[Rfam]
RNA sequence: AAGGAGGAUGUGAGAGUUAGCAUUCCUGCCUGAUACAAUCUUCCUAGAUUUAAUCUGCCAUUUUGUUUGCUUGCUGAACUAUUAGACAGUUUUGCUGGCCUUAGUGGGCAGGACAUCA
Numbered sequence: 001a002a003g004g005a006g007g008a009u010g011u012g013a014g015a016g017u018u019a020g021c022a023u024u025c026c027u028g029c030c031u032g033a034u035a036c037a038a039u040c041u042u043c044c045u046a047g048a049u050u051u052a053a054u055c056u057g058c059c060a061u062u063u064u065g066u067u068u069g070c071u072u073g074c075u076g077a078a079c080u081a082u083u084a085g086a087c088a089g090u091u092u093u094g095c096u097g098g099c100c101u102u103a104g105u106g107g108g109c110a111g112g113a114c115a116u117c118a
Base pairs, nucleotide, nucleotide: 001031003029005027006025007024008023009022010021011020056113058111069099070098071097073095074094076092078090079089080088
RNA: Small nucleolar RNA snoR104